The record is a 106-nucleotide RNA from Romboutsia weinsteinii, which matches "PyrR binding site" in Rfam. By type it is a cis-regulatory element. NCBI's taxonomy places the organism under Bacteria, Bacillota, Clostridia, Peptostreptococcales, Romboutsia. The family has 41 seed sequences and 1,498 matches in Rfam 15.1. The match comes from Rfam's covariance-model search (65 bits).
RNA sequence: AAGUCUUUUAAACUGGUCCAGAGAGGCUGGGAAAGAUAUCUCAUAGCUACGAAAAGUUAUGUAUAGAUAAAAUACUCCCACCUAUUUAGGUGGGAGUAUUUUUUAG
Numbered sequence: 001a002a003g004u005c006u007u008u009u010a011a012a013c014u015g016g017u018c019c020a021g022a023g024a025g026g027c028u029g030g031g032a033a034a035g036a037u038a039u040c041u042c043a044u045a046g047c048u049a050c051g052a053a054a055a056g057u058u059a060u061g062u063a064u065a066g067a068u069a070a071a072a073u074a075c076u077c078c079c080a081c082c083u084a085u086u087u088a089g090g091u092g093g094g095a096g097u098a099u100u101u102u103u104u105a106g
Stems, first nucleotide, its partner, number of pairs: 003037007013030006039067003042061007070101014